[Rfam]
RNA sequence: UGAGCACGUGCACCAGCACCGCAGCAGGGGCGGGGGAACCACAGGUAAGUCGCCCGGUCCGGAUCCGUCCGGACGGGGCUUGGGGUGAAGCCGCGCUCAGCGCGGCCGGGCAACUCCAGCCCGAAUCCGACAGCUCACCUCGUAGGCGUGGGAGAGGAAACGC
Numbered sequence: 001u002g003a004g005c006a007c008g009u010g011c012a013c014c015a016g017c018a019c020c021g022c023a024g025c026a027g028g029g030g031c032g033g034g035g036g037a038a039c040c041a042c043a044g045g046u047a048a049g050u051c052g053c054c055c056g057g058u059c060c061g062g063a064u065c066c067g068u069c070c071g072g073a074c075g076g077g078g079c080u081u082g083g084g085g086u087g088a089a090g091c092c093g094c095g096c097u098c099a100g101c102g103c104g105g106c107c108g109g110g111c112a113a114c115u116c117c118a119g120c121c122c123g124a125a126u127c128c129g130a131c132a133g134c135u136c137a138c139c140u141c142g143u144a145g146g147c148g149u150g151g152g153a154g155a156g157g158a159a160a161c162g163c
Stems, first nucleotide, its partner, number of pairs: 001145001005029001007027001030143006040082002083128003091105004108122004
Dot-bracket structure: (...(.(...................).)((((((....((.......................................))(((.....((((.......))))..((((.......))))...))).........)))))).)..................